[Rfam]
Manganese Mn2+ riboswitch aptamer (yybP-ykoY): a 106-nucleotide sequence from Edwardsiella hoshinae. Its family is annotated with manganese ion binding in the Gene Ontology. The pairing is the family consensus, mapped onto this sequence. Rfam describes the family as follows. This RNA was originally discovered in E. coli during a large scale screen and was named SraF. The family was later found to exist upstream of related families of protein genes in many bacteria, including the the yybP and ykoK genes in B. subtilis. The specific functions of these proteins are unknown, but this structured RNA element may be involved in their genetic regulation as a riboswitch. Lineage of the source: Bacteria > Pseudomonadati > Pseudomonadota > Hafniaceae > Edwardsiella.

RNA sequence: UCUUCCGUCAUGGGGGAGUAGUCUGUCGGUGUGCUAUCACACCGGCGCUGGCGUCAACAAACUUGGUGGUAGCACCAUGGCGUCAGCGCCCAUCACGCGAUGGGUU
Dot-bracket structure: .........................(((..............))).((((((((((.......(((((....)))))))))))))))(((((((....))))))).